[Rfam]
A member of the RNA family "Glycine riboswitch aptamer" from Treponema succinifaciens, 99 nucleotides long.
RNA sequence: UUUUGAUUCUCUGGAGAGUCUCCAUAAAUCCUUGUGGAGCGCCGAAGGGUUAAGGCUAUUCAAGCCGACAUCUCAGGCAAAGUGGACAGAGCAUAAAAA
Numbered sequence: 001u002u003u004u005g006a007u008u009c010u011c012u013g014g015a016g017a018g019u020c021u022c023c024a025u026a027a028a029u030c031c032u033u034g035u036g037g038a039g040c041g042c043c044g045a046a047g048g049g050u051u052a053a054g055g056c057u058a059u060u061c062a063a064g065c066c067g068a069c070a071u072c073u074c075a076g077g078c079a080a081a082g083u084g085g086a087c088a089g090a091g092c093a094u095a096a097a098a099a
Stems, first nucleotide, its partner, number of pairs: 006094002009091005020039006041078003044074002048072003054065001

About this RNA:
Lineage of the source: Bacteria > Spirochaetota > Treponematales > Treponemataceae > Treponema succinifaciens.